[Rfam]
RNA sequence: UCGAAGCUCCAUCUAAAAAUGGAUAAGAUCUUGGUUUAAGUGUAUAUGAGUUUUUGAACUAAAAGGAGCAAUAACCCCUUUCUUGGUCUAUCAAGAGGGCGUUAUUGUUCCC
Numbered sequence: 001u002c003g004a005a006g007c008u009c010c011a012u013c014u015a016a017a018a019a020u021g022g023a024u025a026a027g028a029u030c031u032u033g034g035u036u037u038a039a040g041u042g043u044a045u046a047u048g049a050g051u052u053u054u055u056g057a058a059c060u061a062a063a064a065g066g067a068g069c070a071a072u073a074a075c076c077c078c079u080u081u082c083u084u085g086g087u088c089u090a091u092c093a094a095g096a097g098g099g100c101g102u103u104a105u106u107g108u109u110c111c112c
Stems, first nucleotide, its partner, number of pairs: 008023005065111010077099001080097005
Background:
Rfam assigns this 112-nucleotide RNA to the family "Plastid-psbA-1 3UTR RNA". The sequence is in the family's curated seed alignment. About the family: Plastid psbA-1 is a non-coding RNA (ncRNA) present in plastids. It was identified in inverted repeat sequences in the 3 prime untranslate region (3UTR) of photosystem II quinone-binding protein (psbA). Rfam classes the family as a cis-regulatory element. Its Rfam clan is "Plastid-psbA 3UTR RNA clan".